[Rfam]
RNA sequence: UGGUCCUUGCCAGUGUUUCUUCUGCUCCCUUGUGUUGAGCUCUGACAGAGGAGUCUGGCAGGACACACAGCAAUCUCCCUCUCAGUUUAGGAGAGCCGUCCUAAGAAUAGGGCUGGCUCUUAAAGGCACGAGAGGACAAU
Numbered sequence: 001u002g003g004u005c006c007u008u009g010c011c012a013g014u015g016u017u018u019c020u021u022c023u024g025c026u027c028c029c030u031u032g033u034g035u036u037g038a039g040c041u042c043u044g045a046c047a048g049a050g051g052a053g054u055c056u057g058g059c060a061g062g063a064c065a066c067a068c069a070g071c072a073a074u075c076u077c078c079c080u081c082u083c084a085g086u087u088u089a090g091g092a093g094a095g096c097c098g099u100c101c102u103a104a105g106a107a108u109a110g111g112g113c114u115g116g117c118u119c120u121u122a123a124a125g126g127c128a129c130g131a132g133a134g135g136a137c138a139a140u
Stems, first nucleotide, its partner, number of pairs: 003064005010058002024054003028050001030048004078135006085127004091121007098113006

Shown here is a 140-nucleotide sequence from Canis lupus, a member of the family "Small Cajal body specific RNA 11". Pairs were carried over by alignment from the consensus structure, which was predicted with RNAalifold. Lineage of the source: Eukaryota > Eumetazoa > Craniata > Carnivora > Canis lupus. Its family is annotated with RNA processing, nucleolus and Cajal body in the Gene Ontology. Rfam's curators put it in the seed alignment. On this family, see Darzacq et al., EMBO J 2002: "Cajal body-specific small nuclear RNAs: a novel class of 2'-O-methylation and pseudouridylation guide RNAs". Rfam's curators write: scaRNAs are a specific class of small nuclear RNAs which localise to the Cajal bodies and guide the modification of RNA polymerase II transcribed spliceosomal RNAs U1, U2, U4, U5 and U12. ACA57 belongs to the H/ACA box class of guide RNAs as it has the predicted hairpin-hinge-hairpin-tail structure, conserved H/ACA-box motifs and is found associated with GAR1.